[Rfam]
RNA sequence: AAGCUUAGAGGUUGAAAAGUAUCCCGCUCCAACGCGCCGUCCUUGUGACGGGCCGAGAAAUGUGGGCGACCGCGGGUCCCGCCUAAGCUU
Numbered sequence: 001a002a003g004c005u006u007a008g009a010g011g012u013u014g015a016a017a018a019g020u021a022u023c024c025c026g027c028u029c030c031a032a033c034g035c036g037c038c039g040u041c042c043u044u045g046u047g048a049c050g051g052g053c054c055g056a057g058a059a060a061u062g063u064g065g066g067c068g069a070c071c072g073c074g075g076g077u078c079c080c081g082c083c084u085a086a087g088c089u090u
Base pairs, nucleotide, nucleotide: 001090002089003088004087005086006085007084008083011033012032013031014030023076024075025074026073027072035057037051038050039049040048041047062082063081064080065079066078
skipping-rope RNA: a 90-nucleotide RNA. By type it is a small RNA. It is one of the family's seed sequences.